[Rfam]
RNA sequence: UAGUAUAUUUGGGUCAUACCCCUGUCUACUAAUGUAAGAUCAUCACUCAAAUGCUCAAAACCAUAUGUUUCUACGAGUGUGGCUGCAUCAAGAUGAUACAUAUGCUUCACCCUCAAGGAAUAGAAUUGAAGGGUUACAAAAACUAUUUU
Numbered sequence: 001u002a003g004u005a006u007a008u009u010u011g012g013g014u015c016a017u018a019c020c021c022c023u024g025u026c027u028a029c030u031a032a033u034g035u036a037a038g039a040u041c042a043u044c045a046c047u048c049a050a051a052u053g054c055u056c057a058a059a060a061c062c063a064u065a066u067g068u069u070u071c072u073a074c075g076a077g078u079g080u081g082g083c084u085g086c087a088u089c090a091a092g093a094u095g096a097u098a099c100a101u102a103u104g105c106u107u108c109a110c111c112c113u114c115a116a117g118g119a120a121u122a123g124a125a126u127u128g129a130a131g132g133g134u135u136a137c138a139a140a141a142a143c144u145a146u147u148u149u
Stems, first nucleotide, its partner, number of pairs: 005146003008142002014138001018134002023130001025128001027125001029123003

The record is a 149-nucleotide RNA from Salix brachista, which matches "MIR480 microRNA precursor family" in Rfam. A reference for the family is Lu et al. (2005), "Novel and mechanical stress-responsive MicroRNAs in Populus trichocarpa that are absent from Arabidopsis", Plant Cell. The family's consensus secondary structure was predicted with WAR. Gene Ontology terms of the family: miRNA-mediated post-transcriptional gene silencing and RISC complex.